Rfam assigns this 119-nucleotide RNA sequence from Ketobacter sp. to the family "Guanidine-I riboswitch aptamer".
The match comes from Rfam's covariance-model search (91 bits).
The base pairs follow the family's consensus structure.
Rfam describes the family as follows. This family represents a conserved RNA structure found upstream of the ykkC and yxkD genes in Bacillus subtilis and related genes in other bacteria.
RNA sequence: UUAAUAGACAGCUAGGGUUCCGGUCAAUAUCUAUUGAUGUCUGGUCCGAGAGCGGUCGACCUUCUCAGGAAUCCCCUUCCUGAUUGAAGGUUACACGGCGGGAUAAAAGCCCGGGAGGC
Numbered sequence: 001u002u003a004a005u006a007g008a009c010a011g012c013u014a015g016g017g018u019u020c021c022g023g024u025c026a027a028u029a030u031c032u033a034u035u036g037a038u039g040u041c042u043g044g045u046c047c048g049a050g051a052g053c054g055g056u057c058g059a060c061c062u063u064c065u066c067a068g069g070a071a072u073c074c075c076c077u078u079c080c081u082g083a084u085u086g087a088a089g090g091u092u093a094c095a096c097g098g099c100g101g102g103a104u105a106a107a108a109g110c111c112c113g114g115g116a117g118g119c
Base pairs, nucleotide, nucleotide: 007057008056009055011053012052015047016046020044021043022041023038024037025036026035027034028033058092059091060090061089062088063087064086094114096117100112101111102110